RNA sequence: UGAGUGCAUCGUAAGGUGCGCUGACCGGUGGACAGGAGUCAGCAGAGGGCAUAGUAGGACGUGACGUCUGAAGGCC
Number, nucleotide and partner (000 for none) at each position: 001u023002g022003a000004g021005u020006g019007c018008a017009u016010c015011g000012u000013a000014a000015g010016g009017u008018g007019c006020g005021c004022u002023g001024a000025c000026c000027g000028g000029u000030g000031g000032a000033c000034a000035g000036g000037a000038g000039u046040c045041a000042g000043c000044a000045g040046a039047g000048g076049g075050c074051a000052u000053a000054g000055u000056a000057g069058g068059a067060c066061g065062u000063g000064a000065c061066g060067u059068c058069u057070g000071a000072a000073g000074g050075c049076c048
This 76-nucleotide sequence from Yersinia bercovieri belongs to the Rfam family "Group II catalytic intron D1-D4-1". The pairing is the family consensus, mapped onto this sequence. The source organism's lineage runs through Bacteria, Pseudomonadati, Pseudomonadota, Gammaproteobacteria and Yersinia bercovieri.